This 127-nucleotide RNA from Limosilactobacillus reuteri belongs to the Rfam family "PyrR binding site".
By type it is a cis-regulatory element.
RNA sequence: UUAUCCUUUAAUUUGGUCCCGUGAGGCUAACAAGGGCAGCGUUGUAUUACUAACAUUGAAUCAUACAUAUAUAUUCAAUUUUUCGUAUACGCUUAAGCCCAUUACCAAUGGUUUAAGCGUUUUUUAU
Numbered sequence: 001u002u003a004u005c006c007u008u009u010a011a012u013u014u015g016g017u018c019c020c021g022u023g024a025g026g027c028u029a030a031c032a033a034g035g036g037c038a039g040c041g042u043u044g045u046a047u048u049a050c051u052a053a054c055a056u057u058g059a060a061u062c063a064u065a066c067a068u069a070u071a072u073a074u075u076c077a078a079u080u081u082u083u084c085g086u087a088u089a090c091g092c093u094u095a096a097g098c099c100c101a102u103u104a105c106c107a108a109u110g111g112u113u114u115a116a117g118c119g120u121u122u123u124u125u126a127u
Stems, first nucleotide, its partner, number of pairs: 004036005013030006052082002055079007087122001089120011